Annotation:
Rfam assigns this 111-nucleotide RNA sequence from Butyrivibrio sp. YAB3001 to the family "drum RNA". About the family: Firmicutes, Bacteroidetes (1 example), Proteobacteria (2 examples), Spirochaetes (2 examples). The source organism's lineage runs through Bacteria, Bacillati, Bacillota, Clostridia and Butyrivibrio. The base pairs follow the family's consensus structure, which is taken from published work.
RNA sequence: GAGCGAUGAAGUCGUAUGGAGAGCUGGUAUGCUUUGCACGAUGGAGCCAUAGGUGGGUUUGAUAAGUAACCACAAGCCAGCUAGGAGUAAUCUGAAAGAAAAUUAUCAAAU
Numbered sequence: 001g002a003g004c005g006a007u008g009a010a011g012u013c014g015u016a017u018g019g020a021g022a023g024c025u026g027g028u029a030u031g032c033u034u035u036g037c038a039c040g041a042u043g044g045a046g047c048c049a050u051a052g053g054u055g056g057g058u059u060u061g062a063u064a065a066g067u068a069a070c071c072a073c074a075a076g077c078c079a080g081c082u083a084g085g086a087g088u089a090a091u092c093u094g095a096a097a098g099a100a101a102a103u104u105a106u107c108a109a110a111u
Base pairs, nucleotide, nucleotide: 003047004046011042012041013040014039015038017036018035019034020033021032024080025079026078027077062106063105064104084093085092086091